Overview
The family of this 528-nucleotide part of an RNA from Candidatus Hodgkinia cicadicola is "Bacterial small subunit ribosomal RNA". Lineage of the source: Bacteria > Pseudomonadati > Pseudomonadota > Hyphomicrobiales > Candidatus Hodgkinia cicadicola. On this family, see Cannone et al., BMC Bioinformatics 2002: "The comparative RNA web (CRW) site: an online database of comparative sequence and structure information for ribosomal, intron, and other RNAs". Its Rfam clan is "SSU clan".

[Rfam]
RNA sequence: GAGGAUAAGAGUUUGAUCCUGGCUCAGAACGAAUGCUGGCGGCAGGCUUAACACAUGCAAGUCGAGCGGGUGCUCGCCACCAGUGGUGGGCGCUAGCGGCGAACGGGUGAGUAACGCGUGAGAAUCUGCCUUACUCUACGUGAUAACGCAGGGAAGCUUGCGUCAAUAACGUAUGAUUCCUGAAUCAGGUAAAGAGCUGUUGGAGUAAGAUGAGCUUGCGUUAGAUUAGCUAGUUGGUGGGGUAAAGGCCUACCAAGGCGACGAUCUAUAGCUGGUCUGGGAGGACGGUCAGCCACAUUGGGACUGAGACAAGGCCCAAACUUCUACGGGAGGCAGCAGUGGGGAAUAUUGGACAAUGGGCGAAAGCCUGAUCCAGCCAUGUCGCGUGAGUGAAGAAGGUUUAAUAAGUGAACUGUAAAACUCUUUUGUCGGUGACCAUAGUGAUGGUAGCUGACGAAUAAGCUCCGGCUAACUUCGUGCCAGCAGCCGCGGUAAGACGAGGGGAGCGAGUGUUGUUCGGUUUUAUUG
Numbered sequence: 001g002a003g004g005a006u007a008a009g010a011g012u013u014u015g016a017u018c019c020u021g022g023c024u025c026a027g028a029a030c031g032a033a034u035g036c037u038g039g040c041g042g043c044a045g046g047c048u049u050a051a052c053a054c055a056u057g058c059a060a061g062u063c064g065a066g067c068g069g070g071u072g073c074u075c076g077c078c079a080c081c082a083g084u085g086g087u088g089g090g091c092g093c094u095a096g097c098g099g100c101g102a103a104c105g106g107g108u109g110a111g112u113a114a115c116g117c118g119u120g121a122g123a124a125u126c127u128g129c130c131u132u133a134c135u136c137u138a139c140g141u142g143a144u145a146a147c148g149c150a151g152g153g154a155a156g157c158u159u160g161c162g163u164c165a166a167u168a169a170c171g172u173a174u175g176a177u178u179c180c181u182g183a184a185u186c187a188g189g190u191a192a193a194g195a196g197c198u199g200u201u202g203g204a205g206u207a208a209g210a211u212g213a214g215c216u217u218g219c220g221u222u223a224g225a226u227u228a229g230c231u232a233g234u235u236g237g238u239g240g241g242g243u244a245a246a247g248g249c250c251u252a253c254c255a256a257g258g259c260g261a262c263g264a265u266c267u268a269u270a271g272c273u274g275g276u277c278u279g280g281g282a283g284g285a286c287g288g289u290c291a292g293c294c295a296c297a298u299u300g301g302g303a304c305u306g307a308g309a310c311a312a313g314g315c316c317c318a319a320a321c322u323u324c325u326a327c328g329g330g331a332g333g334c335a336g337c338a339g340u341g342g343g344g345a346a347u348a349u350u351g352g353a354c355a356a357u358g359g360g361c362g363a364a365a366g367c368c369u370g371a372u373c374c375a376g377c378c379a380u381g382u383c384g385c386g387u388g389a390g391u392g393a394a395g396a397a398g399g400u401u402u403a404a405u406a407a408g409u410g411a412a413c414u415g416u417a418a419a420a421c422u423c424u425u426u427u428g429u430c431g432g433u434g435a436c437c438a439u440a441g442u443g444a445u446g447g448u449a450g451c452u453g454a455c456g457a458a459u460a461a462g463c464u465c466c467g468g469c470u471a472a473c474u475u476c477g478u479g480c481c482a483g484c485a486g487c488c489g490c491g492g493u494a495a496g497a498c499g500a501g502g503g504g505a506g507c508g509a510g511u512g513u514u515g516u517u518c519g520g521u522u523u524u525a526u527u528g
Stems, first nucleotide, its partner, number of pairs: 009025005027518004032514006039385006045378002047343001052341003056338003061100003066097002069093001073090007107296003116221007125213002130209007138172004146163007179189004195201002222268003229259003234256008271293004275286004298319005321332004349375001351374003357370005388423004398414006428455006462507005473502005483490002
Dot-bracket structure: ........(((((.......))))).((((.((((((.(((((((((....(((.(((..(((..((.(...(((((((....)))))))..)..)))))......(((......(((((((..((...(((((((.((((....(((((((....))))))).....))))......((((...)))).....((...)).)))))))..)).)))))))(((....(((..((((((((.......)))))))))))......)))..((((((((....))))...))))))).(((((............))))).((((....))))...)))))).).....(.(((...(((((....))))).)))).)).))))))..((((......((((((.....)))))).....))))....((((((................))))))......(((((......(((((.....((....)).......)))))))))).))))))))))..........